[Rfam]
RNA: Manganese Mn2+ riboswitch aptamer (yybP-ykoY)
Organism: Variovorax sp. PAMC 28711
RNA sequence: CGCGCCGUCAUUGGGGAGUAGCCGCCUUCCGUCGAGAGAAGGGCUCACGUCAACAGACUUGUCCUGCCCCACACGGGACAUGGCGUGCGCAGUGUUUCACCUGGCGAGACCUUUGACCGUGCAACUUCGGAAGAUGGCCGAAGGUGUUGCACGGUCAAUUGCGUCCUUCGGCCCAAGGAACUC
Numbered sequence: 001c002g003c004g005c006c007g008u009c010a011u012u013g014g015g016g017a018g019u020a021g022c023c024g025c026c027u028u029c030c031g032u033c034g035a036g037a038g039a040a041g042g043g044c045u046c047a048c049g050u051c052a053a054c055a056g057a058c059u060u061g062u063c064c065u066g067c068c069c070c071a072c073a074c075g076g077g078a079c080a081u082g083g084c085g086u087g088c089g090c091a092g093u094g095u096u097u098c099a100c101c102u103g104g105c106g107a108g109a110c111c112u113u114u115g116a117c118c119g120u121g122c123a124a125c126u127u128c129g130g131a132a133g134a135u136g137g138c139c140g141a142a143g144g145u146g147u148u149g150c151a152c153g154g155u156c157a158a159u160u161g162c163g164u165c166c167u168u169c170g171g172c173c174c175a176a177g178g179a180a181c182u183c
Base pairs, nucleotide, nucleotide: 026041027040043090044089046087047086048085049084050083051082052081060080061079062078063077064076065075066074091182092181093180095178096177097176